[Rfam]
RNA sequence: GGUCUCUGAUUUGUGUAGAGGCUGAAGAACUCGGAGAGCAUGUGUUGUCAUCAGCUUCGUUUCUUUGCUACCAUGAGAUGGGAGUUAAAUAACAUCACGAAAUUG
Dot-bracket structure: ........................................((((.((.....((((((.((((...........))))..))))))......)).))))......
RNA: Small nucleolar RNA snoR97
Organism: Paspalum vaginatum